A member of the RNA family "c-di-GMP-I riboswitch aptamer" from Domibacillus mangrovi, 87 nucleotides long. Taxonomically the source falls in Domibacillus (Bacteria, Bacillati, Bacillota, Bacilli). Rfam describes the family as follows. GEMM was predicted in a large-scale screen for bacterial structured RNA regulatory elements.
[Rfam]
RNA sequence: UAAUGAUAAAGGCAAACUUAUCGAAAGGUAAGGACGCAAAACUACGGGUCUAACAUUCUUAUGGAUUAUGACAGCCGGGUUGCCAAA
Numbered sequence: 001u002a003a004u005g006a007u008a009a010a011g012g013c014a015a016a017c018u019u020a021u022c023g024a025a026a027g028g029u030a031a032g033g034a035c036g037c038a039a040a041a042c043u044a045c046g047g048g049u050c051u052a053a054c055a056u057u058c059u060u061a062u063g064g065a066u067u068a069u070g071a072c073a074g075c076c077g078g079g080u081u082g083c084c085a086a087a
Stems, first nucleotide, its partner, number of pairs: 012037002017032006040081004045077003048072003055066004

The match comes from Rfam's covariance-model search (92 bits).